The family of this 98-nucleotide RNA sequence from Lentibacillus amyloliquefaciens is "Glycine riboswitch aptamer".
RNA sequence: AUGAUUGCAAGGGGAGAGUUUACUGCAGGUAAAAGCAGUAACGCCGAAGGAGCAAGCGACGUUGUGAAUCUCUCAGGCAAAAUGACUCUUGCAGGACG
Dot-bracket structure: .....((((((((......(((((((........))))))).(((((..(((...((......))....))))).))).......)))))))).....

It scores 68 bits against the family's covariance model.